[Rfam]
RNA sequence: UCGUCGACGGCGCCCGGCGCGAUGAAGUGGACGUGGGUGUCGAUUCCGCCCGCGGUGACGAUCUUGCCGUUGCCCGCGACGAUCUCCGUCUCGGGGCCGAUGACGAGGUCGGGGUGGACACCGUCCAUGGUGUCCGGGUUCCCGGCCUUGCCGAUGCCGGUGAUCCGUCCGUCGCGGAUGCCGAUGUCGGCCUUGACGAUCCCCCAGUGAUCGAUGAUCAGGGCUCCGGUGAUCACGGUGUCGGGAGCACCCUGGGCACGGGUGGUGCGCCCCUGCCCCAUGGACUCGCGCAG
Dot-bracket structure: (.(.((..(.((((.((.((((......((.((.((((....))))))))....(((.......)))..))))..(..(.(.(....(...(..(((.....(...(((.(.........).)))..)...)))...)...).).).)..).....))))))....(..((..(((.((.((......(((((((........(........).....)))))))...(....((..(((.......)))..))....).))..)).)))...)).)........)..))).)